[Rfam]
RNA sequence: CUGAUUGAUGAUGAGGACAUGAUGUCCUACGUGCUUACUGGACUGGACGACGACUACGAGCCAGUCGUUUCAUCUCUGGUUGGGAGAUCAGGACCUGUUUCUUUUUCUGAAUUAUACUCUCAGCUUUUGAGUUUUGAGU
Numbered sequence: 001c002u003g004a005u006u007g008a009u010g011a012u013g014a015g016g017a018c019a020u021g022a023u024g025u026c027c028u029a030c031g032u033g034c035u036u037a038c039u040g041g042a043c044u045g046g047a048c049g050a051c052g053a054c055u056a057c058g059a060g061c062c063a064g065u066c067g068u069u070u071c072a073u074c075u076c077u078g079g080u081u082g083g084g085a086g087a088u089c090a091g092g093a094c095c096u097g098u099u100u101c102u103u104u105u106u107c108u109g110a111a112u113u114a115u116a117c118u119c120u121c122a123g124c125u126u127u128u129g130a131g132u133u134u135u136g137a138g139u
Base pairs, nucleotide, nucleotide: 005137006136007135008134090106091105092104093103
Shown here is a 139-nucleotide RNA sequence from Oryza brachyantha, a member of the family "Small nucleolar RNA Z247". The source organism's lineage runs through Eukaryota, Euphyllophyta, Mesangiospermae, Oryzeae and Oryza. By type it is a C/D-box small nucleolar RNA. Gene Ontology terms of the family: nucleolus and RNA processing. For this family Rfam cites "The high diversity of snoRNAs in plants: identification and comparative study of 120 snoRNA genes from Oryza sativa" (Chen et al., Nucleic Acids Res, 2003).